[Rfam]
RNA sequence: UUGCACAGUGAACACCCAAGUGUGCUCUGUAGUUCCCUUGGCCUUGACUCUGUGCUAGAGUAAAGUCUGUUCUUUUCCUCUGACAUUAAAAGGAAUACUGUGUCCUUUUCAAUGUAUUCAGAAAGUCAGCACACCA
Numbered sequence: 001u002u003g004c005a006c007a008g009u010g011a012a013c014a015c016c017c018a019a020g021u022g023u024g025c026u027c028u029g030u031a032g033u034u035c036c037c038u039u040g041g042c043c044u045u046g047a048c049u050c051u052g053u054g055c056u057a058g059a060g061u062a063a064a065g066u067c068u069g070u071u072c073u074u075u076u077c078c079u080c081u082g083a084c085a086u087u088a089a090a091a092g093g094a095a096u097a098c099u100g101u102g103u104c105c106u107u108u109u110c111a112a113u114g115u116a117u118u119c120a121g122a123a124a125g126u127c128a129g130c131a132c133a134c135c136a
Base pairs, nucleotide, nucleotide: 003055004054005053006052007051008050010049013046014045016041017040018039019038020037022035024033025032026031057073058072059071060070061069062068079122080121081120082119084114085113086112087111088109089108090107091106092105093104094103
The record is a 136-nucleotide RNA sequence, which matches "Small nucleolar RNA SNORA22" in Rfam. It is annotated as an H/ACA-box small nucleolar RNA. It is one of the family's seed sequences. About the family: ACA22 is a member of the H/ACA class of snoRNA that guide the sites of modification of uridines to pseudouridines.